[Rfam]
RNA sequence: UUAAAGAAUUUGAAGACUUCAACUUGUAAACUUAAAGAAUUUGAGGACUUCAACUUGUAAACUUAAAGAAUUUGAGGACUUCAACU
Number, nucleotide and partner (000 for none) at each position: 001u084002u083003a000004a081005a080006g079007a000008a000009u076010u075011u074012g073013a072014a071015g000016a000017c068018u067019u066020c000021a064022a000023c000024u000025u059026g058027u057028a056029a000030a000031c000032u053033u052034a000035a050036a049037g048038a000039a000040u000041u000042u000043g000044a000045g000046g000047a000048c037049u036050u035051c000052a033053a032054c000055u000056u028057g027058u026059a025060a000061a000062c000063u000064u021065a000066a019067a018068g017069a000070a000071u014072u013073u012074g011075a010076g009077g000078a000079c006080u005081u004082c000083a002084a001085c000086u000
RNA: MIR8024 microRNA precursor family
Organism: Solanum lycopersicum